A member of the RNA family "mir-9223 microRNA precursor family" from Pipistrellus kuhlii, 75 nucleotides long. The family's consensus secondary structure was predicted with RNAalifold. Its family is annotated with miRNA-mediated post-transcriptional gene silencing and RISC complex in the Gene Ontology. It scores 78 bits against the family's covariance model. Taxonomically the source falls in Pipistrellus (Eukaryota, Deuterostomia, Eutheria, Chiroptera).
RNA sequence: GGCAGUUCUCGGGUGAUGCACCCCGGAAUCAGGCUCCUUCCUCUCUGGUUCUGAGUUCAUUACCUGAGAACCGCA
Numbered sequence: 001g002g003c004a005g006u007u008c009u010c011g012g013g014u015g016a017u018g019c020a021c022c023c024c025g026g027a028a029u030c031a032g033g034c035u036c037c038u039u040c041c042u043c044u045c046u047g048g049u050u051c052u053g054a055g056u057u058c059a060u061u062a063c064c065u066g067a068g069a070a071c072c073g074c075a
Base pairs, nucleotide, nucleotide: 002074003073005071006070007069008068009067010066011065012064013063014062015061016060017059020056021055023053025052026051027050028049029048030047031046032045033044